[Rfam]
RNA sequence: GGGAGGAGGGAGGAGAUGGGCCAAGUUCCCUCUGGCUGGAACGCCCUUCCCCCCCUUCUUCACCU
Numbered sequence: 001g002g003g004a005g006g007a008g009g010g011a012g013g014a015g016a017u018g019g020g021c022c023a024a025g026u027u028c029c030c031u032c033u034g035g036c037u038g039g040a041a042c043g044c045c046c047u048u049c050c051c052c053c054c055c056u057u058c059u060u061c062a063c064c065u
Stems, first nucleotide, its partner, number of pairs: 002061009012051002015049002018046004025042005
RNA: mir-1249 microRNA precursor family
Organism: Pan troglodytes